[Rfam]
RNA sequence: CCCUCGUCCAAACGAUCGCCAUCGAAGCACAUAUAGCACGGAGAUGAAUGGCUAAUCCCAUCGUCUCAUUUACAUUUGCUUUGGGGAAAGUCCCCGGACACCAUCAGCGGAAACGCGCCGCCAUAAAAGCACUCGCGGCUUAGCCCUGCCGACUGUUUUACCUCGCGCCUGGUCUUUAUUUGGUUCUUUUUGCCAACCCUCCCGUUUUUGGACGGUUUCCAUUUCUUCCCCUCGGUCUUCUUACCCAGUCGUUGUCUUGAUUCGCCUUUCUUCGGCCCUCGCCGCCCCCAAUGGACGAAGAUAUGAGUCCGCGCUUCGAGUGGUUUGGGUUAGGCUGUCAGGCAAUUGCUGGCUCUGGCUGUCGAGGUAGGGGUCUUGGUGUAAUGGGGAAGGCGGGGGAGUUAUCUUAAAGGUUGGGUCUAUGGGAAACGCUAUAGUCUUGCAUGGGAGUUCUUCGUCAGUUUUACUGAAAGUUAUGCGAUUCAACCUCGUCCGCUCUGAGUACCUCUGGGGAAAACGAGUGGCUUGGUUUAACACGAUGGGGCUUACUCUUGGUGCGAGG
Numbered sequence: 001c002c003c004u005c006g007u008c009c010a011a012a013c014g015a016u017c018g019c020c021a022u023c024g025a026a027g028c029a030c031a032u033a034u035a036g037c038a039c040g041g042a043g044a045u046g047a048a049u050g051g052c053u054a055a056u057c058c059c060a061u062c063g064u065c066u067c068a069u070u071u072a073c074a075u076u077u078g079c080u081u082u083g084g085g086g087a088a089a090g091u092c093c094c095c096g097g098a099c100a101c102c103a104u105c106a107g108c109g110g111a112a113a114c115g116c117g118c119c120g121c122c123a124u125a126a127a128a129g130c131a132c133u134c135g136c137g138g139c140u141u142a143g144c145c146c147u148g149c150c151g152a153c154u155g156u157u158u159u160a161c162c163u164c165g166c167g168c169c170u171g172g173u174c175u176u177u178a179u180u181u182g183g184u185u186c187u188u189u190u191u192g193c194c195a196a197c198c199c200u201c202c203c204g205u206u207u208u209u210g211g212a213c214g215g216u217u218u219c220c221a222u223u224u225c226u227u228c229c230c231c232u233c234g235g236u237c238u239u240c241u242u243a244c245c246c247a248g249u250c251g252u253u254g255u256c257u258u259g260a261u262u263c264g265c266c267u268u269u270c271u272u273c274g275g276c277c278c279u280c281g282c283c284g285c286c287c288c289c290a291a292u293g294g295a296c297g298a299a300g301a302u303a304u305g306a307g308u309c310c311g312c313g314c315u316u317c318g319a320g321u322g323g324u325u326u327g328g329g330u331u332a333g334g335c336u337g338u339c340a341g342g343c344a345a346u347u348g349c350u351g352g353c354u355c356u357g358g359c360u361g362u363c364g365a366g367g368u369a370g371g372g373g374u375c376u377u378g379g380u381g382u383a384a385u386g387g388g389g390a391a392g393g394c395g396g397g398g399g400a401g402u403u404a405u406c407u408u409a410a411a412g413g414u415u416g417g418g419u420c421u422a423u424g425g426g427a428a429a430c431g432c433u434a435u436a437g438u439c440u441u442g443c444a445u446g447g448g449a450g451u452u453c454u455u456c457g458u459c460a461g462u463u464u465u466a467c468u469g470a471a472a473g474u475u476a477u478g479c480g481a482u483u484c485a486a487c488c489u490c491g492u493c494c495g496c497u498c499u500g501a502g503u504a505c506c507u508c509u510g511g512g513g514a515a516a517a518c519g520a521g522u523g524g525c526u527u528g529g530u531u532u533a534a535c536a537c538g539a540u541g542g543g544g545c546u547u548a549c550u551c552u553u554g555g556u557g558c559g560a561g562g
Stems, first nucleotide, its partner, number of pairs: 002562006008555004014483006022084007041067007088547003092544004107116003118138004123133001410455003420447005429440001431438002485531004